[Rfam]
RNA: Streptococcus sRNA 10
RNA sequence: AUCAAGGGAGUAGCAGACGGUUUACCGUGGCAAUGUCGUCAUUACGAAAGAAAUUUCCGGCGUUGUCUUAAACAGCGAGACUUGUUUUCAUAAAAACAGGUCUCUUUUU
Numbered sequence: 001a002u003c004a005a006g007g008g009a010g011u012a013g014c015a016g017a018c019g020g021u022u023u024a025c026c027g028u029g030g031c032a033a034u035g036u037c038g039u040c041a042u043u044a045c046g047a048a049a050g051a052a053a054u055u056u057c058c059g060g061c062g063u064u065g066u067c068u069u070a071a072a073c074a075g076c077g078a079g080a081c082u083u084g085u086u087u088u089c090a091u092a093a094a095a096a097c098a099g100g101u102c103u104c105u106u107u108u109u
Base pairs, nucleotide, nucleotide: 005028007026008025012022013021014020029067030066031065032064033063034062035061036060037059038058041056045050077104078103079102080101081100082099083098084097085096086095087094088093